[Rfam]
RNA sequence: CCAAAGGCUCUUUUAAGAGCCACCAAAUAUUUCAAGUAGAAGGGCU
Numbered sequence: 001c002c003a004a005a006g007g008c009u010c011u012u013u014u015a016a017g018a019g020c021c022a023c024c025a026a027a028u029a030u031u032u033c034a035a036g037u038a039g040a041a042g043g044g045c046u
Stems, first nucleotide, its partner, number of pairs: 006021006